[Rfam]
RNA: Ruegeria cis52 sRNA
Organism: Sulfitobacter sp. D7
RNA sequence: UGCGCAGGGCGUGUUUCAGCACGAUCUCAGAGAAUUUCACCCCCUUGAGCCGCGCUGUGCGGAUAUACUGCGCGGUCAUCACCUCGGUCAUCGACGCCCGCGUCAUCCGGGCGAUAUAGCCCAUGCCGUAGAGCGAGAUGGUCAGCACCGGCAGGAAGAAGUUCCAGAAGUUGGCGUC
Numbered sequence: 001u002g003c004g005c006a007g008g009g010c011g012u013g014u015u016u017c018a019g020c021a022c023g024a025u026c027u028c029a030g031a032g033a034a035u036u037u038c039a040c041c042c043c044c045u046u047g048a049g050c051c052g053c054g055c056u057g058u059g060c061g062g063a064u065a066u067a068c069u070g071c072g073c074g075g076u077c078a079u080c081a082c083c084u085c086g087g088u089c090a091u092c093g094a095c096g097c098c099c100g101c102g103u104c105a106u107c108c109g110g111g112c113g114a115u116a117u118a119g120c121c122c123a124u125g126c127c128g129u130a131g132a133g134c135g136a137g138a139u140g141g142u143c144a145g146c147a148c149c150g151g152c153a154g155g156a157a158g159a160a161g162u163u164c165c166a167g168a169a170g171u172u173g174g175c176g177u178c
Stems, first nucleotide, its partner, number of pairs: 005140002010135003014131002016128001019126003030121001038113001040111003046105003051100002054097001055075008082096001084094003145178001148174005154165004